A member of the RNA family "U11 spliceosomal RNA" from Ceratopteris richardii, 129 nucleotides long.
[Rfam]
RNA sequence: CAAAAGGGUCGGUUGGCUAAAUAUGCCACGGGCGCUCUCGCCAGUGCUCGCCGUAUGGAUAUCUAGACAUAUGGCCGACACAAUUUUUGGAACCCUAAAGAGGGUUGGCUCGCUCAGCCGACCCUACCA
Numbered sequence: 001c002a003a004a005a006g007g008g009u010c011g012g013u014u015g016g017c018u019a020a021a022u023a024u025g026c027c028a029c030g031g032g033c034g035c036u037c038u039c040g041c042c043a044g045u046g047c048u049c050g051c052c053g054u055a056u057g058g059a060u061a062u063c064u065a066g067a068c069a070u071a072u073g074g075c076c077g078a079c080a081c082a083a084u085u086u087u088u089g090g091a092a093c094c095c096u097a098a099a100g101a102g103g104g105u106u107g108g109c110u111c112g113c114u115c116a117g118c119c120g121a122c123c124c125u126a127c128c129a
Stems, first nucleotide, its partner, number of pairs: 008079005014028004029050008051074007099125002103123008
Notes:
Clan: U1 clan. The source organism's lineage runs through Eukaryota, Streptophytina, Polypodiidae, Polypodiales and Ceratopteris.